[Rfam]
RNA sequence: AUGACGUGUAGCAUGCCCGUUUGUGGAUUACUCUGAUGUAUAAAUGUUAUUUAAUUGCUUUUGGGUAACGGGGUGUUACAAUUUG
Numbered sequence: 001a002u003g004a005c006g007u008g009u010a011g012c013a014u015g016c017c018c019g020u021u022u023g024u025g026g027a028u029u030a031c032u033c034u035g036a037u038g039u040a041u042a043a044a045u046g047u048u049a050u051u052u053a054a055u056u057g058c059u060u061u062u063g064g065g066u067a068a069c070g071g072g073g074u075g076u077u078a079c080a081a082u083u084u085g
Stems, first nucleotide, its partner, number of pairs: 002085003007080008016072006